The record is a 354-nucleotide RNA from Sphingomonas ginsenosidivorax, which matches "Alphaproteobacteria transfer-messenger RNA" in Rfam. The family's RNA type in Rfam is non-coding RNA gene. On this family, see Williams and Bartel, RNA 1996: "Phylogenetic analysis of tmRNA secondary structure".
[Rfam]
RNA sequence: GGGCUUUCCAUGGCGCCGCAUCGUCCCUAUAUCGGUCGGGCCGAUGGGGGAAUUUUCUCCUGCCGGCUAUGGCGAUAAACCGUGGCGUGUCAUAGACACAGCGGACCCGGGGGCAGUACCCGGCGACUCCACCACCGCCCCUUUGCAAAGAGGGACGAUGACGGGGUCGAACUAGGAUCGACGUGUGUUCAACGACGCUAUGUUUCGCUCGGAAUGGGACCACCGCAACGGCCCAUACACAAGUGCCAACGAUAACGAAGCACUCGCAAUUGCCGCAUAACUGACGGUCUAACGACCUAAGUUAUACGGACGAAAGCGCGGUUCGGGCCACACCGGGCAACAGAAGUGGACACC
Numbered sequence: 001g002g003g004c005u006u007u008c009c010a011u012g013g014c015g016c017c018g019c020a021u022c023g024u025c026c027c028u029a030u031a032u033c034g035g036u037c038g039g040g041c042c043g044a045u046g047g048g049g050g051a052a053u054u055u056u057c058u059c060c061u062g063c064c065g066g067c068u069a070u071g072g073c074g075a076u077a078a079a080c081c082g083u084g085g086c087g088u089g090u091c092a093u094a095g096a097c098a099c100a101g102c103g104g105a106c107c108c109g110g111g112g113g114c115a116g117u118a119c120c121c122g123g124c125g126a127c128u129c130c131a132c133c134a135c136c137g138c139c140c141c142u143u144u145g146c147a148a149a150g151a152g153g154g155a156c157g158a159u160g161a162c163g164g165g166g167u168c169g170a171a172c173u174a175g176g177a178u179c180g181a182c183g184u185g186u187g188u189u190c191a192a193c194g195a196c197g198c199u200a201u202g203u204u205u206c207g208c209u210c211g212g213a214a215u216g217g218g219a220c221c222a223c224c225g226c227a228a229c230g231g232c233c234c235a236u237a238c239a240c241a242a243g244u245g246c247c248a249a250c251g252a253u254a255a256c257g258a259a260g261c262a263c264u265c266g267c268a269a270u271u272g273c274c275g276c277a278u279a280a281c282u283g284a285c286g287g288u289c290u291a292a293c294g295a296c297c298u299a300a301g302u303u304a305u306a307c308g309g310a311c312g313a314a315a316g317c318g319c320g321g322u323u324c325g326g327g328c329c330a331c332a333c334c335g336g337g338c339a340a341c342a343g344a345a346g347u348g349g350a351c352a353c354c
Base pairs, nucleotide, nucleotide: 040067041066042065043064071209072208073207074206075205082201083200084199085198086197087196088195097187098186099185101184102183103182107123108122109121110120111119124169125168126167127166128165129164130163210225211224212223215235216234217233220231221230319335320334321333322332325351328348